The record is a 76-nucleotide RNA sequence from Cuscuta europaea, which matches "Small nucleolar RNA R12" in Rfam. The match comes from Rfam's covariance-model search (68 bits). Lineage of the source: Eukaryota > Spermatophyta > Pentapetalae > Cuscuta > Cuscuta subgen. Cuscuta. The family's RNA type in Rfam is C/D-box small nucleolar RNA. From the family's description: snoR12 is a C/D box small nucleolar RNA, which acts as a methylation guide for 25S ribosomal RNA in plants. snoR12 has been alternatively named snoZ44 in Arabidopsis and snoZ131 in rice. Gene Ontology terms of the family: RNA processing and nucleolus.
RNA sequence: GGCAGGAUGAUGAAAAAAUCAGACGGAUUCCCUAUGAAUUCAACUUGAUUACAACAACCAGCUACUUCUGACUCCC
Numbered sequence: 001g002g003c004a005g006g007a008u009g010a011u012g013a014a015a016a017a018a019u020c021a022g023a024c025g026g027a028u029u030c031c032c033u034a035u036g037a038a039u040u041c042a043a044c045u046u047g048a049u050u051a052c053a054a055c056a057a058c059c060a061g062c063u064a065c066u067u068c069u070g071a072c073u074c075c076c
Stems, first nucleotide, its partner, number of pairs: 001076002004073002